The record is a 69-nucleotide RNA from Dracunculus medinensis, which matches "mir-5366 microRNA precursor family" in Rfam. The base pairs follow the family's consensus structure, which was predicted with RNAalifold.
[Rfam]
Nucleotides: 069
Base pairs, nucleotide, nucleotide: 003067004066006064007063008062009061010060011059012058013057014056016054017053018052019051020050021049022048023047024046025045026044027043028042029041
Number, partner (000 for none) and nucleotide at each position: 001000a002000a003067g004066u005000c006064c007063g008062u009061a010060a011059a012058u013057g014056c015000a016054c017053u018052g019051u020050g021049u022048u023047g024046c025045u026044a027043a028042u029041u030000u031000u032000a033000u034000u035000u036000u037000g038000c039000g040000a041029a042028a043027u044026u045025a046024g047023c048022a049021g050020c051019a052018u053017g054016g055000c056014g057013c058012a059011u060010u061009u062008g063007c064006g065000c066004a067003c068000c069000a